[Rfam]
RNA sequence: AACAUGAUGACAAACUGUUUCGGUCCCAUAUGAGUUCUUGUGAUUACUGACAUGAGAUCGUUCUGAUGUU
Numbered sequence: 001a002a003c004a005u006g007a008u009g010a011c012a013a014a015c016u017g018u019u020u021c022g023g024u025c026c027c028a029u030a031u032g033a034g035u036u037c038u039u040g041u042g043a044u045u046a047c048u049g050a051c052a053u054g055a056g057a058u059c060g061u062u063c064u065g066a067u068g069u070u
Stems, first nucleotide, its partner, number of pairs: 001070004
Rfam assigns this 70-nucleotide RNA sequence from Xenopus tropicalis to the family "Small nucleolar RNA SNORD73". The family has 25 seed sequences and 769 matches in Rfam 15.1. On this family, see Rebane et al., Gene 1998: "A novel snoRNA (U73) is encoded within the introns of the human and mouse ribosomal protein S3a genes". The family's consensus secondary structure was predicted with PFOLD.